[Rfam]
RNA: c-di-GMP-I-GGC riboswitch aptamer
Organism: Anaerosolibacter carboniphilus
RNA sequence: AUCGAUAAAGGCAAACUUGUCGAAAGGCAAGGACGCAAAGCUACGGGUCUAAAGCAUUUGCCAUGAUCGCCGAGCUGCCGGUG
Numbered sequence: 001a002u003c004g005a006u007a008a009a010g011g012c013a014a015a016c017u018u019g020u021c022g023a024a025a026g027g028c029a030a031g032g033a034c035g036c037a038a039a040g041c042u043a044c045g046g047g048u049c050u051a052a053a054g055c056a057u058u059u060g061c062c063a064u065g066a067u068c069g070c071c072g073a074g075c076u077g078c079c080g081g082u083g
Stems, first nucleotide, its partner, number of pairs: 003080002011036002016031006034069001039076004044072003047067003